[Rfam]
RNA sequence: UAUAAUUCUCAGGGCGGGGUGUAAUUCCCCACCGGCGGUAAUAAUCAGGCCUACGAUUUAUUCGUAACCUAUUUCAGCCCGCGAGCGCCUCAGUCGUCUUUUUUAUAAAGUCAUCACUUAGGGUCAGCAGAUCUGGUGAACGCUAUGCCACAUAGCCUAGUCCAGAGCCGACGGUAAUGUUCAUAUCAUAAGAUAUGGCUAAGUCCGGAUGAGAGAGAAUAUAA
Numbered sequence: 001u002a003u004a005a006u007u008c009u010c011a012g013g014g015c016g017g018g019g020u021g022u023a024a025u026u027c028c029c030c031a032c033c034g035g036c037g038g039u040a041a042u043a044a045u046c047a048g049g050c051c052u053a054c055g056a057u058u059u060a061u062u063c064g065u066a067a068c069c070u071a072u073u074u075c076a077g078c079c080c081g082c083g084a085g086c087g088c089c090u091c092a093g094u095c096g097u098c099u100u101u102u103u104u105a106u107a108a109a110g111u112c113a114u115c116a117c118u119u120a121g122g123g124u125c126a127g128c129a130g131a132u133c134u135g136g137u138g139a140a141c142g143c144u145a146u147g148c149c150a151c152a153u154a155g156c157c158u159a160g161u162c163c164a165g166a167g168c169c170g171a172c173g174g175u176a177a178u179g180u181u182c183a184u185a186u187c188a189u190a191a192g193a194u195a196u197g198g199c200u201a202a203g204u205c206c207g208g209a210u211g212a213g214a215g216a217g218a219a220u221a222u223a224a
Stems, first nucleotide, its partner, number of pairs: 005220006017029003033170002035082004085128002132166005172207003

Notes:
This 224-nucleotide sequence from Moritella sp. Urea-trap-13 belongs to the Rfam family "FMN riboswitch aptamer (RFN element)". The organism belongs to Moritella, within Bacteria. It scores 80 bits against the family's covariance model.